[Rfam]
RNA: tRNA
RNA sequence: CAGGAUAUAGUUUAGGUAGAAUGCCGGUUUUGGGGACCGGUGGUAAAGGUUAAAGUCCUUUUAUCCUGA
Numbered sequence: 001c002a003g004g005a006u007a008u009a010g011u012u013u014a015g016g017u018a019g020a021a022u023g024c025c026g027g028u029u030u031u032g033g034g035g036a037c038c039g040g041u042g043g044u045a046a047a048g049g050u051u052a053a054a055g056u057c058c059u060u061u062u063a064u065c066c067u068g069a
Stems, first nucleotide, its partner, number of pairs: 001068007010022004024040005045061005
Dot-bracket structure: (((((((..((((.....)))).(((((.......)))))....(((((.......)))))))))))).